[Rfam]
Background
Rfam assigns this 176-nucleotide RNA from Macellibacteroides fermentans to the family "Bacteroidales-1 6S-Bacteroidales RNA suggested". The match comes from Rfam's covariance-model search (180 bits).
RNA sequence: AGCCGCACUUGUUCGAUUGGCAAACUCAUCAGUAUUUUUAAUUCCGAGACAAGCUCUCGUUGUCAAUGGCGGGCCGCACCCUUCGGGGCAUGCAUCGCACAGCGGAUUACAAAGACGGCGAAGCACUCAAAACCUGUCACACGGAGUUUAUUCAUAUCUUCAGUGCGGCUUUCUUU
Numbered sequence: 001a002g003c004c005g006c007a008c009u010u011g012u013u014c015g016a017u018u019g020g021c022a023a024a025c026u027c028a029u030c031a032g033u034a035u036u037u038u039u040a041a042u043u044c045c046g047a048g049a050c051a052a053g054c055u056c057u058c059g060u061u062g063u064c065a066a067u068g069g070c071g072g073g074c075c076g077c078a079c080c081c082u083u084c085g086g087g088g089c090a091u092g093c094a095u096c097g098c099a100c101a102g103c104g105g106a107u108u109a110c111a112a113a114g115a116c117g118g119c120g121a122a123g124c125a126c127u128c129a130a131a132a133c134c135u136g137u138c139a140c141a142c143g144g145a146g147u148u149u150a151u152u153c154a155u156a157u158c159u160u161c162a163g164u165g166c167g168g169c170u171u172u173c174u175u176u
Stems, first nucleotide, its partner, number of pairs: 053124003057121008067111002074105004079088003091099003
Dot-bracket structure: ....................................................(((.((((((((..((.....((((.(((....)))..(((...)))..))))....))..)))))))))))....................................................
Rfam classes the family as a small RNA.